Rfam assigns this 136-nucleotide RNA sequence from Kluyvera genomosp. 3 to the family "Enterobacteria sRNA STnc130". The family's RNA type in Rfam is small RNA. Lineage of the source: Bacteria > Pseudomonadati > Gammaproteobacteria > Enterobacterales > Kluyvera.

[Rfam]
RNA sequence: UACAACGAAUGGCUAUUAUUAUAGUGUUAUAUGCUGUUGCUACUUCGAAGUGAGUAUUAAGGACUCUACCAGGAGAGGUAUUGUUCAGUAUCAAUGAGGAUAUAAAAAAAGCGCCUUUCGGCGCUUUUUCGGAUGA
Number, nucleotide and partner (000 for none) at each position: 001u000002a000003c000004a000005a000006c000007g000008a000009a000010u000011g000012g000013c000014u000015a000016u000017u000018a000019u000020u000021a000022u000023a000024g000025u000026g000027u000028u000029a000030u000031a000032u000033g000034c000035u000036g000037u000038u000039g000040c000041u000042a000043c000044u000045u000046c000047g000048a000049a000050g000051u000052g000053a000054g000055u000056a000057u000058u000059a000060a000061g070062g069063a000064c000065u000066c000067u000068a000069c062070c061071a000072g000073g000074a000075g000076a000077g000078g000079u000080a000081u000082u000083g000084u000085u000086c000087a000088g000089u000090a000091u000092c000093a000094a000095u000096g000097a000098g000099g000100a000101u000102a000103u000104a000105a000106a000107a000108a127109a126110a125111g124112c123113g122114c121115c120116u000117u000118u000119c000120g115121g114122c113123g112124c111125u110126u109127u108128u000129u000130c000131g000132g000133a000134u000135g000136a000